A member of the RNA family "Ribosomal protein L13 leader" from Bacillus sp. J14TS2, 60 nucleotides long.
A reference for the family is Zengel and Lindahl (1994), "Diverse mechanisms for regulating ribosomal protein synthesis in Escherichia coli", Prog Nucleic Acid Res Mol Biol.
Taxonomically the source falls in Bacillus (Bacteria, Bacillati, Caryophanales, Bacillaceae).
The family's RNA type in Rfam is cis-regulatory leader.
Gene Ontology term of the family: regulation of gene expression.
About the family: This family is a putative r-protein leader autoregulatory structure found in B. subtilis and other low-GC Gram-positive bacteria. It is located in the 5' untranslated regions of mRNAs encoding the L13-S9 (rplM-rpsI) ribosomal protein operon.
RNA sequence: GGUAUUGUUUUAAUUCCAUGAUAAGCCCCGGAAACUUAUUAUGCUGAAUAUAAAUACGAA
Numbered sequence: 001g002g003u004a005u006u007g008u009u010u011u012a013a014u015u016c017c018a019u020g021a022u023a024a025g026c027c028c029c030g031g032a033a034a035c036u037u038a039u040u041a042u043g044c045u046g047a048a049u050a051u052a053a054a055u056a057c058g059a060a
Stems, first nucleotide, its partner, number of pairs: 006056005011050001017043009